[Rfam]
RNA sequence: CCUGUGGAGUGUCACAUCCACCGUAGUAGCGAGCUUGGGGCGAGGCGGGACACGUUGAAGCAGGAA
Number, nucleotide and partner (000 for none) at each position: 001c064002c063003u062004g061005u060006g000007g000008a000009g053010u052011g051012u050013c049014a000015c000016a000017u000018c000019c000020a000021c048022c047023g046024u000025a000026g000027u000028a000029g041030c040031g000032a000033g000034c000035u000036u000037g000038g000039g000040g030041c029042g000043a000044g000045g000046c023047g022048g021049g013050a012051c011052a010053c009054g000055u000056u000057g000058a000059a000060g005061c004062a003063g002064g001065a000066a000